[Rfam]
RNA sequence: CAAGCACUUUGAAAAAUUGCGUAACUCAGUGCAGAGCGAAUGCCAUUGUGCUGAGGCACCGUAGGGUUAAUCUCGUAAAGCGGCUAAGCAACUCCUUGGGAUACUUAGGAGCGAAGCAAAAUUCCUUUUUGGUGACAAAUUGGAACUACUUCCUUAAAUGAGGGAGUGCCGUGGGGCGGUGGCGCAAAUUAUAUUCUCAAGUUAGGACGAUGUCUUGUCGCUUCCAUAAUAGACGCCCCUGUGGGGAAUAAUCCUUGUUAGGUGAUUGGGUGGCACCAAUUACAAACCAAGGAAUGCCAAUAAGGAAGUUCGCGGUGACGCCUUAGAAAUAAGGCUAUAAGACAAGGUCGGUGCACAAGUAGCCCAAAGCGCGAAGAAUUUCUAAUGUUUGAUUAAGAAUGGUAUUUUGAACCAUUAUUGCUGAAAACUCUGAAUGGUGGGUGAAAGUUGCGGGUAAUCAAUCCCGUCCGAGAUUAAAGGUGAAGAACCUGUGCCCGUGGAAAACGGGUGGGGCAAGAAGUUAUGGGGUCGCUCCCUAUGGCUCAGACUUGUUUCCUCGGUAGUCUAAUAAACAGAGAAUAUAAUGUUGUAGAGCGAAGGUUCACGCAAUUUUUCAAAAUGUA
Number, nucleotide and partner (000 for none) at each position: 001c000002a000003a000004g000005c000006a000007c000008u619009u618010u617011g000012a000013a614014a613015a612016a611017u000018u609019g000020c000021g000022u000023a000024a000025c055026u054027c053028a052029g051030u000031g000032c000033a000034g000035a000036g049037c048038g047039a046040a000041u000042g000043c000044c000045a000046u039047u038048g037049u036050g000051c029052u028053g027054a026055g025056g000057c181058a180059c179060c178061g177062u176063a000064g000065g000066g000067u000068u000069a000070a000071u000072c000073u000074c000075g000076u000077a000078a000079a000080g000081c000082g000083g000084c000085u118086a000087a000088g000089c000090a000091a000092c111093u110094c109095c108096u107097u000098g105099g104100g000101a000102u000103a000104c099105u098106u000107a096108g095109g094110a093111g092112c000113g000114a000115a000116g000117c000118a085119a000120a000121a000122u145123u144124c143125c142126u000127u000128u139129u138130u137131g136132g000133u000134g000135a000136c131137a130138a129139a128140u000141u000142g125143g124144a123145a122146c000147u000148a000149c166150u165151u164152c163153c162154u161155u160156a000157a000158a000159u000160g155161a154162g153163g152164g151165a150166g149167u000168g000169c000170c000171g000172u000173g000174g000175g000176g062177c061178g060179g059180u058181g057182g000183c000184g000185c000186a000187a000188a000189u000190u584191a000192u000193a000194u000195u579196c000197u000198c000199a000200a000201g000202u000203u572204a000205g000206g000207a000208c000209g000210a352211u351212g348213u347214c346215u345216u344217g343218u342219c341220g309221c308222u307223u306224c305225c304226a000227u000228a000229a000230u000231a000232g000233a000234c000235g000236c000237c246238c245239c244240u000241g000242u000243g000244g239245g238246g237247a000248a000249u000250a000251a000252u293253c292254c291255u290256u289257g288258u000259u000260a000261g000262g283263u282264g281265a280266u000267u278268g277269g276270g000271u299272g298273g297274c296275a000276c269277c268278a267279a000280u265281u264282a263283c262284a000285a000286a000287c000288c257289a256290a255291g254292g253293a252294a000295u000296g274297c273298c272299a271300a000301u000302a000303a000304g225305g224306a223307a222308g221309u220310u374311c373312g372313c371314g370315g000316u000317g000318a000319c000320g335321c334322c333323u332324u331325a000326g000327a000328a000329a000330u000331a324332a323333g322334g321335c320336u000337a000338u000339a000340a000341g219342a218343c217344a216345a215346g214347g213348u212349c000350g000351g211352u210353g000354c000355a000356c447357a000358a000359g000360u000361a000362g442363c441364c440365c439366a438367a000368a000369g000370c314371g313372c312373g311374a310375a000376g000377a000378a000379u000380u000381u000382c000383u000384a000385a000386u000387g000388u000389u000390u000391g000392a000393u000394u000395a000396a000397g000398a000399a000400u000401g000402g000403u000404a000405u000406u000407u000408u000409g000410a000411a000412c000413c000414a000415u000416u000417a000418u000419u000420g000421c000422u000423g000424a000425a000426a000427a000428c000429u547430c546431u545432g544433a000434a000435u000436g000437g000438u366439g365440g364441g363442u362443g000444a000445a000446a000447g356448u000449u000450g000451c000452g000453g465454g464455u000456a000457a000458u000459c000460a000461a000462u000463c000464c454465c453466g000467u000468c000469c559470g558471a557472g509473a000474u000475u000476a000477a000478a000479g000480g000481u000482g000483a000484a000485g000486a000487a000488c000489c000490u000491g000492u000493g000494c507495c000496c000497g000498u000499g000500g000501a000502a000503a000504a000505c000506g000507g494508g000509u472510g000511g556512g555513g554514c000515a000516a550517g549518a000519a000520g543521u000522u540523a539524u538525g537526g536527g535528g534529u000530c000531g000532c000533u000534c528535c527536c526537u525538a524539u523540g522541g000542c000543u520544c432545a431546g430547a429548c000549u517550u516551g000552u000553u000554u513555c512556c511557u471558c470559g469560g000561u000562a000563g000564u000565c000566u000567a000568a000569u000570a000571a000572a203573c000574a000575g000576a000577g000578a000579a195580u000581a000582u000583a000584a190585u000586g000587u000588u000589g000590u000591a000592g603593a602594g601595c600596g000597a000598a000599g000600g595601u594602u593603c592604a000605c000606g000607c000608a000609a018610u000611u016612u015613u014614u013615c000616a000617a010618a009619a008620u000621g000622u000623a000
RNA: ROOL RNA